Shown here is an 88-nucleotide sequence from Cohnella lubricantis, a member of the family "c-di-GMP-I riboswitch aptamer". Lineage of the source: Bacteria > Bacillota > Bacilli > Paenibacillaceae > Cohnella. On this family, see Weinberg et al., Nucleic Acids Res 2007: "Identification of 22 candidate structured RNAs in bacteria using the CMfinder comparative genomics pipeline". A search with the family's covariance model found it, with a score of 76 bits.

[Rfam]
Nucleotides: 088
Stems, first nucleotide, its partner, number of pairs: 012037002017032006041081003046078003049073003056067004
Number, partner (000 for none) and nucleotide at each position: 001000a002000c003000u004000u005000a006000a007000a008000u009000u010000g011000g012037g013036c014000a015000a016000a017032c018031u019030u020029g021028c022027u023000g024000a025000a026000a027022g028021g029020c030019a031018a032017g033000g034000a035000c036013g037012c038000a039000a040000a041081g042080c043079u044000a045000u046078a047077g048076g049073g050072u051071c052000u053000a054000a055000a056067g057066u058065u059064c060000u061000a062000u063000g064059g065058a066057a067056c068000g069000a070000u071051g072050a073049c074000a075000g076048c077047c078046u079043a080042g081041c082000c083000g084000c085000c086000g087000g088000u